[Rfam]
The record is a 61-nucleotide RNA from Halarchaeum rubridurum, which matches "eL15-Euryarchaeota ribosomal protein leader" in Rfam. A reference for the family is Eckert and Weinberg (2020), "Discovery of 20 novel ribosomal leader candidates in bacteria and archaea", BMC Microbiol. A search with the family's covariance model found it, with a score of 40 bits. By type it is a cis-regulatory leader. Lineage of the source: Archaea > Methanobacteriati > Halobacteria > Halobacteriales > Halarchaeum.
RNA sequence: CCCGCCGCGGCGUCGCCGCGACGGGACGAAAUGUGGUGCGCCCCGCGCACUGAAUCGCAAG
Numbered sequence: 001c002c003c004g005c006c007g008c009g010g011c012g013u014c015g016c017c018g019c020g021a022c023g024g025g026a027c028g029a030a031a032u033g034u035g036g037u038g039c040g041c042c043c044c045g046c047g048c049a050c051u052g053a054a055u056c057g058c059a060a061g
Base pairs, nucleotide, nucleotide: 001025002024003023004022027057028056029055035051036050037049038048039047040046041045